A member of the RNA family "Flavo-1 RNA" from Flavobacterium aquatile, 143 nucleotides long. Lineage of the source: Bacteria > Bacteroidota > Flavobacteriia > Flavobacterium > Flavobacterium aquatile.
[Rfam]
RNA sequence: UUUUAGCCCUGAUAGAAGUGGAAAUCCUUUUUUAAAAAAUUUCUAUUUUUUCUUGUUUAAAAAAAGCGACCAAAGAAGCUCUUUUUUAAACUUAGAAAAAAAGGAAUUUUUAAAAAAGAUUGGAACGUAUAGCAGGAUUGGCU
Numbered sequence: 001u002u003u004u005a006g007c008c009c010u011g012a013u014a015g016a017a018g019u020g021g022a023a024a025u026c027c028u029u030u031u032u033u034a035a036a037a038a039a040u041u042u043c044u045a046u047u048u049u050u051u052c053u054u055g056u057u058u059a060a061a062a063a064a065a066g067c068g069a070c071c072a073a074a075g076a077a078g079c080u081c082u083u084u085u086u087u088a089a090a091c092u093u094a095g096a097a098a099a100a101a102a103g104g105a106a107u108u109u110u111u112a113a114a115a116a117a118g119a120u121u122g123g124a125a126c127g128u129a130u131a132g133c134a135g136g137a138u139u140g141g142c143u
Stems, first nucleotide, its partner, number of pairs: 009135003013131002018126002023121004029116010